[Rfam]
RNA sequence: AGCAGUGAUGAGCUAGAUACAGUCUGACCUGGUAUUGCGACCCAUGUCUGCUCUGACCAGGAGAUGAGCACUUAAUCUUCUCUCUGAGCUG
Numbered sequence: 001a002g003c004a005g006u007g008a009u010g011a012g013c014u015a016g017a018u019a020c021a022g023u024c025u026g027a028c029c030u031g032g033u034a035u036u037g038c039g040a041c042c043c044a045u046g047u048c049u050g051c052u053c054u055g056a057c058c059a060g061g062a063g064a065u066g067a068g069c070a071c072u073u074a075a076u077c078u079u080c081u082c083u084c085u086g087a088g089c090u091g
Base pairs, nucleotide, nucleotide: 002089003088037051038050039049
RNA: Z30 small nucleolar RNA